[Rfam]
RNA sequence: CGCCGUCCGCAGGCGUAGGAGAGCGGAUAGGAACGGGAGGCGACCCCGUGAAAAAGAGUA
Numbered sequence: 001c002g003c004c005g006u007c008c009g010c011a012g013g014c015g016u017a018g019g020a021g022a023g024c025g026g027a028u029a030g031g032a033a034c035g036g037g038a039g040g041c042g043a044c045c046c047c048g049u050g051a052a053a054a055a056g057a058g059u060a
Stems, first nucleotide, its partner, number of pairs: 001015004007026004034048004
A member of the RNA family "GP20-b RNA", 60 nucleotides long. It is annotated as a cis-regulatory element.